[Rfam]
RNA sequence: UUGUUUGUGAUGAUUAUAAACAAUUCCUCGUUCUGAAUACGAUGGCAUGAUAGACUCUUUUACACCCAUAGAAUAUGAGCAAAC
Numbered sequence: 001u002u003g004u005u006u007g008u009g010a011u012g013a014u015u016a017u018a019a020a021c022a023a024u025u026c027c028u029c030g031u032u033c034u035g036a037a038u039a040c041g042a043u044g045g046c047a048u049g050a051u052a053g054a055c056u057c058u059u060u061u062a063c064a065c066c067c068a069u070a071g072a073a074u075a076u077g078a079g080c081a082a083a084c
Base pairs, nucleotide, nucleotide: 003084004083006081007080